This 281-nucleotide RNA sequence from Nannospalax galili belongs to the Rfam family "Mason-Pfizer monkey virus packaging signal". Rfam 15.1 lists 2,921 matches to the family in 53 species. A reference for the family is Harrison et al. (1995), "Secondary structure model of the Mason-Pfizer monkey virus 5' leader sequence: identification of a structural motif common to a variety of retroviruses", J Virol.

RNA sequence: UGGGUCCAACGUGGGCCUGGAUACUGGGGAAUAACGUGAGGGUCCGACGACGAAGAUAAGAAGAAGGGGUGCGCACCUGCUCAAACAAUAGCUCAGAGACAUCGUGGUAGUCUGCUGUGACUGAGCCGACAGGUAAGUUGGUCUUUCAAUCAUGGGGCAAGAAUUGAGCCAGCAUCAGAAAUAUGUAAUACAGUUAAAAGAAGCUUUACAUGCAAGAGGAGUAAAGGUUACAACCGAGGAUUUAUUUCAUUUCUUUGAUUCUGUGAAAGACAUCUGCCCAU
Numbered sequence: 001u002g003g004g005u006c007c008a009a010c011g012u013g014g015g016c017c018u019g020g021a022u023a024c025u026g027g028g029g030a031a032u033a034a035c036g037u038g039a040g041g042g043u044c045c046g047a048c049g050a051c052g053a054a055g056a057u058a059a060g061a062a063g064a065a066g067g068g069g070u071g072c073g074c075a076c077c078u079g080c081u082c083a084a085a086c087a088a089u090a091g092c093u094c095a096g097a098g099a100c101a102u103c104g105u106g107g108u109a110g111u112c113u114g115c116u117g118u119g120a121c122u123g124a125g126c127c128g129a130c131a132g133g134u135a136a137g138u139u140g141g142u143c144u145u146u147c148a149a150u151c152a153u154g155g156g157g158c159a160a161g162a163a164u165u166g167a168g169c170c171a172g173c174a175u176c177a178g179a180a181a182u183a184u185g186u187a188a189u190a191c192a193g194u195u196a197a198a199a200g201a202a203g204c205u206u207u208a209c210a211u212g213c214a215a216g217a218g219g220a221g222u223a224a225a226g227g228u229u230a231c232a233a234c235c236g237a238g239g240a241u242u243u244a245u246u247u248c249a250u251u252u253c254u255u256u257g258a259u260u261c262u263g264u265g266a267a268a269g270a271c272a273u274c275u276g277c278c279c280a281u
Stems, first nucleotide, its partner, number of pairs: 005029003011024003035049003090134001092132001093129002100123002103119005141158002145156004165208003168204002216256006225243005266281001269278001271276001